[Rfam]
RNA: MIR6217 microRNA precursor family
RNA sequence: UAGGUAUAAAAUAACUUAUUCUAUUGAGUUACGAUAAUUACUAUAUUAAUUUACAAGAUUAUAAUAACUCCUUACUAAGUGGUUUACUAUAACGUUAUGGUAAAUAUCCCCAUAUGUUAUAGUAACCCAACUAUCGUAAAUAUAUAUUGACAUUAUCGUAAAUUAGUAUAUAAAAUUAUAGUAAAUAGAGGUAGCUAUAUAGUAACUUAUUUUAUAGUUA
Numbered sequence: 001u002a003g004g005u006a007u008a009a010a011a012u013a014a015c016u017u018a019u020u021c022u023a024u025u026g027a028g029u030u031a032c033g034a035u036a037a038u039u040a041c042u043a044u045a046u047u048a049a050u051u052u053a054c055a056a057g058a059u060u061a062u063a064a065u066a067a068c069u070c071c072u073u074a075c076u077a078a079g080u081g082g083u084u085u086a087c088u089a090u091a092a093c094g095u096u097a098u099g100g101u102a103a104a105u106a107u108c109c110c111c112a113u114a115u116g117u118u119a120u121a122g123u124a125a126c127c128c129a130a131c132u133a134u135c136g137u138a139a140a141u142a143u144a145u146a147u148u149g150a151c152a153u154u155a156u157c158g159u160a161a162a163u164u165a166g167u168a169u170a171u172a173a174a175a176u177u178a179u180a181g182u183a184a185a186u187a188g189a190g191g192u193a194g195c196u197a198u199a200u201a202g203u204a205a206c207u208u209a210u211u212u213u214a215u216a217g218u219u220a
Base pairs, nucleotide, nucleotide: 001220002219003218005216006215007214008213009212010211011210012209013208014207016205017204018203019202020201022199023198024197025188029184030183031182032181034179035178036177037176038175039174042170043169044168045167046166047165048164049163050162051161052160053159054158057157058156059155061153062152066147072139073138074137075136079134080133081132082131083130084129085124086123087122088121089120090119091118092117093116094115095114099109100108